[Rfam]
RNA: Small nucleolar RNA SNORD127
RNA sequence: UGGCAACAAUGAUGACAGGAGUUGUACCUGGAUGUAGCGUUCCGCUACUACAUGGAGACACCAGUCCCUCUAAGCUGAUGUUGCCG
Number, nucleotide and partner (000 for none) at each position: 001u086002g085003g084004c083005a082006a081007c080008a000009a000010u000011g000012a000013u000014g000015a000016c000017a000018g000019g000020a000021g000022u000023u000024g000025u000026a000027c000028c000029u000030g000031g000032a000033u000034g000035u000036a000037g000038c000039g000040u000041u000042c000043c000044g000045c000046u000047a000048c000049u000050a000051c000052a000053u000054g000055g000056a000057g000058a000059c000060a000061c000062c000063a000064g000065u000066c000067c000068c000069u000070c000071u000072a000073a000074g000075c000076u000077g000078a000079u000080g007081u006082u005083g004084c003085c002086g001